[Rfam]
RNA: Rhizobiales sRNA Atu_Ti4
RNA sequence: GAAAAACUCAGCACUGCGGAGUGAUUGGAUGGGUCCUAUCUUUUGAGAGAUCAGCUGUUCGUUGCCUUCUCCCGAGCAAAGAAACAUGCAAGCGCUGCGGUAGCCAG
Numbered sequence: 001g002a003a004a005a006a007c008u009c010a011g012c013a014c015u016g017c018g019g020a021g022u023g024a025u026u027g028g029a030u031g032g033g034u035c036c037u038a039u040c041u042u043u044u045g046a047g048a049g050a051u052c053a054g055c056u057g058u059u060c061g062u063u064g065c066c067u068u069c070u071c072c073c074g075a076g077c078a079a080a081g082a083a084a085c086a087u088g089c090a091a092g093c094g095c096u097g098c099g100g101u102a103g104c105c106a107g
Stems, first nucleotide, its partner, number of pairs: 011104002013101007021093002045071005052064004